Rfam assigns this 73-nucleotide RNA from Paenibacillus piri to the family "tRNA". The family's RNA type in Rfam is transfer RNA.
RNA sequence: GCCGUUGUAGCUCAAUUGGUAGAGCAACGGUAUCGUAAACCGUAGGUUGGAGGUUCGAGUCCUCUCGACGGCA
Dot-bracket structure: (((((((..((((........)))).(((((.......))))).....(((((.......)))))))))))).